[Rfam]
RNA sequence: AGACUCUUAGCUCUCCAUAGUUAUGCUUGGCCUCACCUGUGUGAUUUCUUAAUGGGGAGAGAGAGAUCUCCUUGGGAACUCAGAUUGGCAUUAUGGUGGCCUCUCUUUCCUUCAGGGGCACAAUAAGU
Numbered sequence: 001a002g003a004c005u006c007u008u009a010g011c012u013c014u015c016c017a018u019a020g021u022u023a024u025g026c027u028u029g030g031c032c033u034c035a036c037c038u039g040u041g042u043g044a045u046u047u048c049u050u051a052a053u054g055g056g057g058a059g060a061g062a063g064a065g066a067u068c069u070c071c072u073u074g075g076g077a078a079c080u081c082a083g084a085u086u087g088g089c090a091u092u093a094u095g096g097u098g099g100c101c102u103c104u105c106u107u108u109c110c111u112u113c114a115g116g117g118g119c120a121c122a123a124u125a126a127g128u
Stems, first nucleotide, its partner, number of pairs: 004063005011057004019046008068118005074112003082106003087101003